[Rfam]
RNA sequence: GCGUGGGUCGGCCCGCUGCACUGGACACAGCGGGCUGGGGGAGCACCGCCGCCUCAUUCCCCGCAGGCGGCGGACCGGUCCGGGGGGCGGACCGCGCCUCCCGGACCCGGCG
Numbered sequence: 001g002c003g004u005g006g007g008u009c010g011g012c013c014c015g016c017u018g019c020a021c022u023g024g025a026c027a028c029a030g031c032g033g034g035c036u037g038g039g040g041g042a043g044c045a046c047c048g049c050c051g052c053c054u055c056a057u058u059c060c061c062c063g064c065a066g067g068c069g070g071c072g073g074a075c076c077g078g079u080c081c082g083g084g085g086g087g088c089g090g091a092c093c094g095c096g097c098c099u100c101c102c103g104g105a106c107c108c109g110g111c112g
Stems, first nucleotide, its partner, number of pairs: 001111002006076003009037010038044001046073009077107013
RNA: Streptomyces RNA 4115
Organism: Streptomyces sp. A0642